[Rfam]
RNA: Streptococcus sRNA SpF41
Organism: Streptococcus satellite phage Javan624
RNA sequence: AUGACACAAGGAGUAGUAUAUAGGGAUUACGCCUUGAUGGAGGAGAUUCCGGUUCGAAUCCGGGCUAUUGUGUUGUAAAGCACCCAUUCUUAAGAUAGGGUGCUUUAUUAA
Number, nucleotide and partner (000 for none) at each position: 001a000002u000003g074004a073005c072006a071007c070008a069009a068010g000011g000012a066013g065014u000015a000016g000017u000018a000019u000020a000021u000022a000023g000024g000025g000026a000027u000028u000029a000030c000031g000032c043033c042034u041035u040036g000037a000038u000039g000040g035041a034042g033043g032044a000045g000046a000047u000048u064049c063050c062051g061052g060053u000054u000055c000056g000057a000058a000059u000060c052061c051062g050063g049064g048065c013066u012067a000068u009069u008070g007071u006072g005073u004074u003075g000076u000077a000078a000079a000080g103081c102082a101083c100084c099085c098086a000087u000088u000089c000090u000091u000092a000093a000094g000095a000096u000097a000098g085099g084100g083101u082102g081103c080104u000105u000106u000107a000108u000109u000110a000111a000